[Rfam]
RNA sequence: GAGUUUGCGGUGAUGACACUAUUGUGGACUAGAGUUUCUGAUUAGGGAUUUUCACCCUUAUCUGACGACACACCCUUGGCUGUCUGAGCACUAUU
Numbered sequence: 001g002a003g004u005u006u007g008c009g010g011u012g013a014u015g016a017c018a019c020u021a022u023u024g025u026g027g028a029c030u031a032g033a034g035u036u037u038c039u040g041a042u043u044a045g046g047g048a049u050u051u052u053c054a055c056c057c058u059u060a061u062c063u064g065a066c067g068a069c070a071c072a073c074c075c076u077u078g079g080c081u082g083u084c085u086g087a088g089c090a091c092u093a094u095u
Stems, first nucleotide, its partner, number of pairs: 001095002006090003035067001037065002042060001044058004
The record is a 95-nucleotide RNA sequence from Papaver nudicaule, which matches "Small nucleolar RNA Z157/R69/R10" in Rfam. NCBI's taxonomy places the organism under Eukaryota, Viridiplantae, Streptophyta, Papaveroideae, Papaver. The match comes from Rfam's covariance-model search (64 bits). The family's consensus secondary structure was predicted with PFOLD.